A member of the RNA family "Mammalian CPEB3 ribozyme" from Crocodylus porosus, 75 nucleotides long.
Nucleotides: 075
Stems, first nucleotide, its partner, number of pairs: 013043003016039001019075007026038003047064003051060002
Number, partner (000 for none) and nucleotide at each position: 001000u002000g003000a004000c005000a006000a007000g008000u009000u010000c011000a012000a013043g014042g015041g016039c017000a018000c019075a020074g021073c022072a023071g024070a025069a026038g027037c028036a029000c030000u031000c032000a033000u034000g035000g036028u037027g038026u039016g040000g041015c042014c043013c044000u045000a046000c047064c048063a049062g050000a051060u052059u053000c054000c055000a056000a057000a058000a059052a060051a061000a062049c063048u064047g065000c066000a067000a068000a069025u070024u071023c072022u073021g074020c075019u
Source information: The mammalian CPEB3 ribozyme is a self cleaving RNA located in the second intron of the CPEB3 gene which belongs to a family of genes regulating messenger RNA polyadenylation. It scores 42 bits against the family's covariance model.